Shown here is a 177-nucleotide sequence from Ectobacillus ponti, a member of the family "Lysine riboswitch aptamer". The match comes from Rfam's covariance-model search (117 bits). The base pairs follow the family's consensus structure, which is taken from published work. Rfam links the family to the GO term lysine biosynthetic process. Rfam's curators write: Riboswitches are metabolite binding domains within certain messenger RNAs that serve as precision sensors for their corresponding targets.

RNA sequence: CUCAUUGGUAGAGGUUGCAAUUGUCAAAAGUAAACAGCGCAAGACUUGUGGAGUCCGUGACCGCUGCCGAAAGGGGCAAUUGCCGAAGCGGGAUGCAGCCACACUGCAAGCUGCUGGGUCUGCAUUGAAGAAGUGCAGAACUGUCACAAGCAAGCCUUGUGAAGAGCUAUUCGGAGA
Numbered sequence: 001c002u003c004a005u006u007g008g009u010a011g012a013g014g015u016u017g018c019a020a021u022u023g024u025c026a027a028a029a030g031u032a033a034a035c036a037g038c039g040c041a042a043g044a045c046u047u048g049u050g051g052a053g054u055c056c057g058u059g060a061c062c063g064c065u066g067c068c069g070a071a072a073g074g075g076g077c078a079a080u081u082g083c084c085g086a087a088g089c090g091g092g093a094u095g096c097a098g099c100c101a102c103a104c105u106g107c108a109a110g111c112u113g114c115u116g117g118g119u120c121u122g123c124a125u126u127g128a129a130g131a132a133g134u135g136c137a138g139a140a141c142u143g144u145c146a147c148a149a150g151c152a153a154g155c156c157u158u159g160u161g162a163a164g165a166g167c168u169a170u171u172c173g174g175a176g177a
Stems, first nucleotide, its partner, number of pairs: 007171005017083009035066005087115005094108005116142002119139008144162007